[Rfam]
RNA sequence: GCCGAGCUUAGUAAUGUGAGCUUGUAACCCAAGUGGGGGCAUAAAUGUGAUGGGACUUUGGUCCAAACCAGUUGGUCGGAUUCCAUGAGGUUUCAGUCUGGCCCGCCCAUUCCAAGCAAAGAGAUGAGCCAAUGGAAUUGAGCUAAAGCUCUGUGUUCAGUGGUUCCUAAAGAUGAGGGCAAUGCGUGAGGCUGGUUUCACAGAGCAGCGACAACCUCCCACUCUUUGCAGUGGAAGGAUAACGGGUCAGUGCCUAUUAGUUCCAACAUGGCCCAUUGGGUUGAACCAACUGAACUAUCACUUUU
Numbered sequence: 001g002c003c004g005a006g007c008u009u010a011g012u013a014a015u016g017u018g019a020g021c022u023u024g025u026a027a028c029c030c031a032a033g034u035g036g037g038g039g040c041a042u043a044a045a046u047g048u049g050a051u052g053g054g055a056c057u058u059u060g061g062u063c064c065a066a067a068c069c070a071g072u073u074g075g076u077c078g079g080a081u082u083c084c085a086u087g088a089g090g091u092u093u094c095a096g097u098c099u100g101g102c103c104c105g106c107c108c109a110u111u112c113c114a115a116g117c118a119a120a121g122a123g124a125u126g127a128g129c130c131a132a133u134g135g136a137a138u139u140g141a142g143c144u145a146a147a148g149c150u151c152u153g154u155g156u157u158c159a160g161u162g163g164u165u166c167c168u169a170a171a172g173a174u175g176a177g178g179g180c181a182a183u184g185c186g187u188g189a190g191g192c193u194g195g196u197u198u199c200a201c202a203g204a205g206c207a208g209c210g211a212c213a214a215c216c217u218c219c220c221a222c223u224c225u226u227u228g229c230a231g232u233g234g235a236a237g238g239a240u241a242a243c244g245g246g247u248c249a250g251u252g253c254c255u256a257u258u259a260g261u262u263c264c265a266a267c268a269u270g271g272c273c274c275a276u277u278g279g280g281u282u283g284a285a286c287c288a289a290c291u292g293a294a295c296u297a298u299c300a301c302u303u304u305u
Base pairs, nucleotide, nucleotide: 001040002039003038004023005022006021007020008019009018010017028037029036030035043305044304045303047301048300049299050298051297052296053295056292058289059288060287062284063283065281068279069278070277071276072275074273075272076271077270078264079263080262082260085257086256088255089254090253092252098250099249100248101247102246103245104244105243107238108237110236111235112234113233114232116229117228118227119226120225121224122223123222126166127165128164129163130162131161133159134158135157136156137154138153140151141150142149143148167172175218176217177216178215185210186209187208192203193202194201
RNA: Plant signal recognition particle RNA
Organism: Castanea mollissima